[Rfam]
RNA sequence: GAUAUAUCGCUUUGUAAGUCGCUUUGGAUAAAAGCGUCUGCUAAGUGAAUAAAU
Numbered sequence: 001g002a003u004a005u006a007u008c009g010c011u012u013u014g015u016a017a018g019u020c021g022c023u024u025u026g027g028a029u030a031a032a033a034g035c036g037u038c039u040g041c042u043a044a045g046u047g048a049a050u051a052a053a054u
Base pairs, nucleotide, nucleotide: 013043014041015040016039020036021035022034023033024032025031